[Rfam]
RNA sequence: CUGGCUUUGGUGCAGGGGAGCGGCCCCGGGUAGGCCUCUGCUCCGGCCCCUCCUGGGGCCCACAGUCCUGCUCCAGGCUCG
Numbered sequence: 001c002u003g004g005c006u007u008u009g010g011u012g013c014a015g016g017g018g019a020g021c022g023g024c025c026c027c028g029g030g031u032a033g034g035c036c037u038c039u040g041c042u043c044c045g046g047c048c049c050c051u052c053c054u055g056g057g058g059c060c061c062a063c064a065g066u067c068c069u070g071c072u073c074c075a076g077g078c079u080c081g
Stems, first nucleotide, its partner, number of pairs: 003079003007076004012071002015068003020063001022061002024058007033048004
The record is an 81-nucleotide sequence from Phyllostomus discolor, which matches "mir-1343 microRNA precursor family" in Rfam.